Annotation:
The family of this 93-nucleotide RNA sequence from Actinobacillus pleuropneumoniae is "TPP riboswitch aptamer (THI element)".

RNA sequence: AAUUUUUAGUCGGGGUGCUUCUUAAGAAGCUGAGAUUAAACCCGUGAACCUGAUACAGUUAGUACUGACGUAGGAAACUAAUAUGCUUAUUUU
Dot-bracket structure: .....(((((((((.((((((....))))).......)..))))....((((...(((......)))...))))..)))))............